[Rfam]
RNA sequence: GGUUGGGUAGAUUACUUUCAAGGAUUUCUUUUCUAGGGCGAGAAAAG
Numbered sequence: 001g002g003u004u005g006g007g008u009a010g011a012u013u014a015c016u017u018u019c020a021a022g023g024a025u026u027u028c029u030u031u032u033c034u035a036g037g038g039c040g041a042g043a044a045a046a047g
Stems, first nucleotide, its partner, number of pairs: 003021003006016004028047007
The family of this 47-nucleotide sequence from Vagococcus zengguangii is "Na+ riboswitch aptamer (DUF1646)".
Its family is annotated with regulation of gene expression and sodium ion binding in the Gene Ontology.